[Rfam]
RNA sequence: GUUAGUUUUGCAGGUUUGCAUCCAGCUGUGUGAUGUUCUGCUGUGCAAAUCCAUGCAAAACUGA
Numbered sequence: 001g002u003u004a005g006u007u008u009u010g011c012a013g014g015u016u017u018g019c020a021u022c023c024a025g026c027u028g029u030g031u032g033a034u035g036u037u038c039u040g041c042u043g044u045g046c047a048a049a050u051c052c053a054u055g056c057a058a059a060a061c062u063g064a
Base pairs, nucleotide, nucleotide: 002064003063004062005061006060007059008058009057010056011055012054013052014051015049016048017047018046019045020044021043024042025041026040